RNA sequence: AUACAACCAGGGGCUUGUUCUUUUUUCACUUGUAGCAAGCUUCUCGAAAAACUUUAGGAAUAUUGAUCUCAUUGUUAUUGGGUGAACCUUCAGAGAUUUUUAUUCCAUGAAAGAAGGUUCAAUAAACAAUGACACAACU
Numbered sequence: 001a002u003a004c005a006a007c008c009a010g011g012g013g014c015u016u017g018u019u020c021u022u023u024u025u026u027c028a029c030u031u032g033u034a035g036c037a038a039g040c041u042u043c044u045c046g047a048a049a050a051a052c053u054u055u056a057g058g059a060a061u062a063u064u065g066a067u068c069u070c071a072u073u074g075u076u077a078u079u080g081g082g083u084g085a086a087c088c089u090u091c092a093g094a095g096a097u098u099u100u101u102a103u104u105c106c107a108u109g110a111a112a113g114a115a116g117g118u119u120c121a122a123u124a125a126a127c128a129a130u131g132a133c134a135c136a137a138c139u
Base pairs, nucleotide, nucleotide: 005054006053011042012041014039015038016037017036018035019034070131071130072129073128074127075126076125083121084120085119086118087117088116089115
Shown here is a 139-nucleotide RNA sequence from Zingiber officinale, a member of the family "Small nucleolar RNA snoR74". The source organism's lineage runs through Eukaryota, Spermatophyta, commelinids, Zingiberales and Zingiber. It is annotated as an H/ACA-box small nucleolar RNA. On this family, see Marker et al., Curr Biol 2002: "Experimental RNomics: identification of 140 candidates for small non-messenger RNAs in the plant Arabidopsis thaliana".